[Rfam]
RNA sequence: GCUGCCCGGACGCCAGGUCGACAGAAGUGCAUCGGCAGGAGUGGAGGACCCAGGUACGACGGGCCGCCGGAGAGAUCCGGACGGCCCUUGGGGUGAAGCCGCGCGAGCGGCCGGGCAUCUUCGCCUGCCCGAACCCGACAGGUCAUCCUUCACAGGCGGCUGACGAAGGGUUU
Numbered sequence: 001g002c003u004g005c006c007c008g009g010a011c012g013c014c015a016g017g018u019c020g021a022c023a024g025a026a027g028u029g030c031a032u033c034g035g036c037a038g039g040a041g042u043g044g045a046g047g048a049c050c051c052a053g054g055u056a057c058g059a060c061g062g063g064c065c066g067c068c069g070g071a072g073a074g075a076u077c078c079g080g081a082c083g084g085c086c087c088u089u090g091g092g093g094u095g096a097a098g099c100c101g102c103g104c105g106a107g108c109g110g111c112c113g114g115g116c117a118u119c120u121u122c123g124c125c126u127g128c129c130c131g132a133a134c135c136c137g138a139c140a141g142g143u144c145a146u147c148c149u150u151c152a153c154a155g156g157c158g159g160c161u162g163a164c165g166a167a168g169g170g171u172u173u
Base pairs, nucleotide, nucleotide: 005039006038041153042152043151044150045149046148051090052089053088054087091136092135093134099110100109101108102107113130114129115128116127
Dot-bracket structure: ....((...............................)).((((((....((((................................))))(((.....((((....))))..((((..........))))...)))...........))))))....................